[Rfam]
RNA: TPP riboswitch aptamer (THI element)
RNA sequence: GGCAGCUCCGAGGGGUGUCCUGUUACGGGCUGAGAUGGCGCAAGCCGAACCCUUUGAACCUGAUCUGGGUCAUGCCAGCGAAGGGACGGUUAGGCAACCGCGC
Numbered sequence: 001g002g003c004a005g006c007u008c009c010g011a012g013g014g015g016u017g018u019c020c021u022g023u024u025a026c027g028g029g030c031u032g033a034g035a036u037g038g039c040g041c042a043a044g045c046c047g048a049a050c051c052c053u054u055u056g057a058a059c060c061u062g063a064u065c066u067g068g069g070u071c072a073u074g075c076c077a078g079c080g081a082a083g084g085g086a087c088g089g090u091u092a093g094g095c096a097a098c099c100g101c102g103c
Base pairs, nucleotide, nucleotide: 008089009088010087011053012052013051014050016047017030018029019028020027037046038045039044059084060083061082065078066077067076068075
Dot-bracket structure: .......(((((((.(((((......))))......(((....))))..)))).....(((...((((......))))...)))..)))..............